[Rfam]
This 210-nucleotide sequence from Streptomyces jumonjinensis belongs to the Rfam family "Streptomyces RNA 1601". Identified by deep sequencing of transcriptome at the end of exponential growth phase. Appears longer on northern blot than sequencing transcript. Streptomyces specific. The organism belongs to Streptomyces, within Bacteria. By type it is a small RNA. A search with the family's covariance model found it, with a score of 167 bits.
RNA sequence: GACGACCGGCUGGAUACGACUGUGUCCAGCCCACAAGUGGAGGCUCCGAUCUCCCACCUGGCCGUCCUCAGGGGCGGCGGGUCACCGGUCAAGCGGUGCCCAUCGUUCCGUACGGACGAUGGAAGCCGCUGAUACGCGCCCCGCGGCUGACCGCGGCGGUGCUCCGGUAUUGAUGGAGCUGCCGCCUGUGUCCCGUCCGGGGCGUUUUGU
Number, nucleotide and partner (000 for none) at each position: 001g000002a000003c000004g090005a089006c088007c087008g086009g085010c000011u000012g027013g026014a000015u000016a000017c000018g000019a000020c000021u000022g000023u000024g000025u000026c013027c012028a000029g082030c081031c080032c079033a000034c060035a059036a000037g057038u056039g055040g054041a052042g051043g000044c000045u000046c000047c000048g000049a000050u000051c042052u041053c000054c040055c039056a038057c037058c000059u035060g034061g078062c077063c076064g075065u074066c073067c072068u000069c000070a000071g000072g067073g066074g065075c064076g063077g062078c061079g032080g031081g030082u029083c000084a000085c009086c008087g007088g006089u005090c004091a000092a130093g129094c128095g127096g126097u000098g000099c000100c122101c121102a120103u119104c118105g117106u116107u115108c000109c000110g000111u000112a000113c000114g000115g107116a106117c105118g104119a103120u102121g101122g100123a000124a000125g000126c096127c095128g094129c093130u092131g000132a000133u000134a000135c000136g000137c000138g203139c202140c201141c200142c199143g198144c195145g194146g193147c000148u000149g000150a000151c000152c190153g189154c188155g186156g185157c184158g183159g182160u000161g179162c178163u177164c176165c175166g000167g000168u000169a000170u000171u000172g000173a000174u000175g165176g164177a163178g162179c161180u000181g000182c159183c158184g157185c156186c155187u000188g154189u153190g152191u000192c000193c146194c145195g144196u000197c000198c143199g142200g141201g140202g139203c138204g000205u000206u000207u000208u000209g000210u000